About this RNA: The family of this 113-nucleotide RNA from Roseibium alexandrii is "EcpR1". Lineage of the source: Bacteria > Pseudomonadati > Pseudomonadota > Roseibium > Roseibium alexandrii. Gene Ontology terms of the family: mRNA binding, regulation of translation in response to stress and negative regulation of cell cycle. Rfam's curators put it in the seed alignment. Perviously named SmelC291, SmrC10, or Sra33. According to its overproduction phenotype it was renamed Elongated Cell Phenotype RNA1. Induced by stress,EcpR1 negatively regulates cell cycle master regulatory genes dnaA and gcrA at post-transcriptional level by base pairing between its strongly conserved GC-rich loop and the target mRNAs. It's regulation is hfq-independent but requires RNase E to regulate dnaA.
RNA sequence: UUUCCCCUCGGGAUUGCUCAGGUCCGCCGCAUCUCCUGGGUCCGUGGGGUAGGUCGGCAGGGAACCGGUCGAAGAGUGGCCUCCUCGAAUACCGUGUUCCCGCCGACCACUAA
Dot-bracket structure: ...((((.((......((((((............))))))..)).))))..(((((((.(((...................................))).))))))).....
Numbered sequence: 001u002u003u004c005c006c007c008u009c010g011g012g013a014u015u016g017c018u019c020a021g022g023u024c025c026g027c028c029g030c031a032u033c034u035c036c037u038g039g040g041u042c043c044g045u046g047g048g049g050u051a052g053g054u055c056g057g058c059a060g061g062g063a064a065c066c067g068g069u070c071g072a073a074g075a076g077u078g079g080c081c082u083c084c085u086c087g088a089a090u091a092c093c094g095u096g097u098u099c100c101c102g103c104c105g106a107c108c109a110c111u112a113a
Stems, first nucleotide, its partner, number of pairs: 004049004009044002017040006052108007060100003